[Rfam]
Rfam assigns this 187-nucleotide RNA sequence from Paecilomyces variotii to the family "Small nucleolar RNA snR80". It is annotated as an H/ACA-box small nucleolar RNA. The base pairs follow the family's consensus structure, which was predicted with WAR. The literature on the family includes a 2004 paper in Nucleic Acids Res by Schattner et al., "Genome-wide searching for pseudouridylation guide snoRNAs: analysis of the Saccharomyces cerevisiae genome". NCBI's taxonomy places the organism under Eukaryota, Dikarya, Eurotiales, Thermoascaceae, Paecilomyces. Gene Ontology terms of the family: RNA processing and nucleolus. The family is grouped with related families in Rfam's "SNORA28 clan". It scores 40 bits against the family's covariance model.
RNA sequence: CGACCUUUGCCACACUCUGGCCCUUACCGUCCUUUCCCAUCUGGGAUUGGUAAACAUUCCUCCACGGUAUAGGCUUAUUUUGGUGCAAAGAAGAUCAACUUCAGACCCAUUACUCACCGCGGUAUCUUCAGGAGGGAGACUUUGUCUCUCUCCCGUGGAUACAGUGGUCCAUAUUUCGGGCCGACAU
Numbered sequence: 001c002g003a004c005c006u007u008u009g010c011c012a013c014a015c016u017c018u019g020g021c022c023c024u025u026a027c028c029g030u031c032c033u034u035u036c037c038c039a040u041c042u043g044g045g046a047u048u049g050g051u052a053a054a055c056a057u058u059c060c061u062c063c064a065c066g067g068u069a070u071a072g073g074c075u076u077a078u079u080u081u082g083g084u085g086c087a088a089a090g091a092a093g094a095u096c097a098a099c100u101u102c103a104g105a106c107c108c109a110u111u112a113c114u115c116a117c118c119g120c121g122g123u124a125u126c127u128u129c130a131g132g133a134g135g136g137a138g139a140c141u142u143u144g145u146c147u148c149u150c151u152c153c154c155g156u157g158g159a160u161a162c163a164g165u166g167g168u169c170c171a172u173a174u175u176u177c178g179g180g181c182c183g184a185c186a187u
Stems, first nucleotide, its partner, number of pairs: 007088003019075004025069004030052001032050001104182001106180002117167004122162006